[Rfam]
RNA sequence: GCAGUGUUUGCGGGAGAGUGCGUAUCGUUGACCAAAUUGUCAGCGACAGCCGCCGAAGGCGUAAUUCACCCAGAAUCGCUCAGGCUCCCGAACCGCAAAUCACAG
Number, nucleotide and partner (000 for none) at each position: 001g000002c000003a000004g000005u000006g100007u099008u098009u097010g096011c095012g094013g093014g000015a000016g000017a000018g000019u000020g050021c049022g000023u000024a000025u000026c000027g000028u000029u000030g000031a000032c000033c000034a000035a000036a000037u000038u000039g000040u000041c000042a000043g000044c000045g000046a000047c000048a000049g021050c020051c000052g085053c084054c083055g081056a080057a000058g000059g079060c078061g077062u000063a000064a000065u072066u000067c000068a000069c000070c000071c000072a065073g000074a000075a000076u000077c061078g060079c059080u056081c055082a000083g054084g053085c052086u000087c000088c000089c000090g000091a000092a000093c013094c012095g011096c010097a009098a008099a007100u006101c000102a000103c000104a000105g000